RNA sequence: CCGCGGGGAUGAUCUCUCCUUGAACUCUCUCUUGCCGAUGGCACCGUGGGGAAGCUUCUCACAAAGCUCUGAGCGGC
Dot-bracket structure: ((((....................................................................)))).
Shown here is a 77-nucleotide sequence from Indicator maculatus, a member of the family "Small nucleolar RNA SNORD26". NCBI's taxonomy places the organism under Eukaryota, Metazoa, Sauropsida, Aves, Indicator. It scores 54 bits against the family's covariance model. A reference for the family is Tycowski et al. (1996), "A small nucleolar RNA requirement for site-specific ribose methylation of rRNA in Xenopus", Proc Natl Acad Sci U S A. The family's consensus secondary structure was predicted with PFOLD. Gene Ontology terms of the family: nucleolus and RNA processing. The family is grouped with related families in Rfam's "SNORD26 clan".